[Rfam]
RNA sequence: UUAACGACUCUAAAUAAUCAAGCUUUCUUAAAUGCUAGUCACACUUUUUGUGUGGCCACACUGCCAAAUUGCGGGGAAGCCCUAAAGAUCUUACCACCAAGCUACAGUCGAAAGGUUGUAGUGGCCGAGCGAAAAGCCCUGGGUAUGGUAAUAGUGUAAGAUAUGUAACAAUGGGUAAUCUGCAGCCAAGUCCUACGUCUGUAAAGAUAUGUGUAGUGUUCACAGGCCAAAUGGUGGUGGGUAUCUUUUAAAGAUGCUUAAGGUAUGGUCGGUCUGCCUCUGGGAAGAGGAG
Numbered sequence: 001u002u003a004a005c006g007a008c009u010c011u012a013a014a015u016a017a018u019c020a021a022g023c024u025u026u027c028u029u030a031a032a033u034g035c036u037a038g039u040c041a042c043a044c045u046u047u048u049u050g051u052g053u054g055g056c057c058a059c060a061c062u063g064c065c066a067a068a069u070u071g072c073g074g075g076g077a078a079g080c081c082c083u084a085a086a087g088a089u090c091u092u093a094c095c096a097c098c099a100a101g102c103u104a105c106a107g108u109c110g111a112a113a114g115g116u117u118g119u120a121g122u123g124g125c126c127g128a129g130c131g132a133a134a135a136g137c138c139c140u141g142g143g144u145a146u147g148g149u150a151a152u153a154g155u156g157u158a159a160g161a162u163a164u165g166u167a168a169c170a171a172u173g174g175g176u177a178a179u180c181u182g183c184a185g186c187c188a189a190g191u192c193c194u195a196c197g198u199c200u201g202u203a204a205a206g207a208u209a210u211g212u213g214u215a216g217u218g219u220u221c222a223c224a225g226g227c228c229a230a231a232u233g234g235u236g237g238u239g240g241g242u243a244u245c246u247u248u249u250a251a252a253g254a255u256g257c258u259u260a261a262g263g264u265a266u267g268g269u270c271g272g273u274c275u276g277c278c279u280c281u282g283g284g285a286a287g288a289g290g291a292g
Base pairs, nucleotide, nucleotide: 001017002016027034059239060238061237062236063235065233066232070184071183072182073181074180075179080175081174082173185219186218190214191213193211198207199206200205223271225270226269227268228267229266241257242256243255244254245253246252247251277290278289279288280287281286
Annotation: Group I catalytic intron: a 292-nucleotide sequence from Blastobotrys ciferrii. A reference for the family is Cate et al. (1996), "Crystal structure of a group I ribozyme domain: principles of RNA packing", Science. Gene Ontology term of the family: Group I intron splicing. Rfam 15.1 lists 5,602 matches to the family in 1,395 species.